[Rfam]
RNA sequence: AAACUUACCUGGCCGGGAAGCUCCGGUGAUCAAGAAGGUCGGAGUUCCGUAGUGAGGCUUCAUCAUUGCACUUUAGAUUGGAGUUGACCUGCGGGGCAACUUCAAACGAAGUUAGCCCACGGCUUAAUUUUUGUGUUUGGAGGAGCGUUCGCGCCCUCCC
Numbered sequence: 001a002a003a004c005u006u007a008c009c010u011g012g013c014c015g016g017g018a019a020g021c022u023c024c025g026g027u028g029a030u031c032a033a034g035a036a037g038g039u040c041g042g043a044g045u046u047c048c049g050u051a052g053u054g055a056g057g058c059u060u061c062a063u064c065a066u067u068g069c070a071c072u073u074u075a076g077a078u079u080g081g082a083g084u085u086g087a088c089c090u091g092c093g094g095g096g097c098a099a100c101u102u103c104a105a106a107c108g109a110a111g112u113u114a115g116c117c118c119a120c121g122g123c124u125u126a127a128u129u130u131u132u133g134u135g136u137u138u139g140g141a142g143g144a145g146c147g148u149u150c151g152c153g154c155c156c157u158c159c160c
Base pairs, nucleotide, nucleotide: 012123013122014121015120016048017047018046019045023042024041025040026039027038049092050091051090052089054088056085057084058083060081061080062079063077064076094118095117096116097115098113099112101110102109139159140158141157142156143155145154146153147152
RNA: U1 spliceosomal RNA
Organism: Strongyloides venezuelensis